The record is a 100-nucleotide RNA sequence from Geobacillus stearothermophilus, which matches "Purine riboswitch aptamer" in Rfam. Riboswitches are metabolite binding domains within certain messenger RNAs that serve as precision sensors for their corresponding targets. The base pairs follow the family's consensus structure, which is taken from published work. It is one of the family's seed sequences. The organism belongs to Geobacillus, within Bacteria.

RNA sequence: AAUGAAUCACGCUGACUCACUCAUAUAAUCGCAAGAAUACGGCUUGCGAGUCUCUACCAGCCGACCGUAAAUCGGCUGACUAUGAGUGGCAAUGUCAGGA
Numbered sequence: 001a002a003u004g005a006a007u008c009a010c011g012c013u014g015a016c017u018c019a020c021u022c023a024u025a026u027a028a029u030c031g032c033a034a035g036a037a038u039a040c041g042g043c044u045u046g047c048g049a050g051u052c053u054c055u056a057c058c059a060g061c062c063g064a065c066c067g068u069a070a071a072u073c074g075g076c077u078g079a080c081u082a083u084g085a086g087u088g089g090c091a092a093u094g095u096c097a098g099g100a
Base pairs, nucleotide, nucleotide: 018088019087020086021085022084023083024082025081029049030048031047032046033045034044035043058078059077060076061075062074063073064072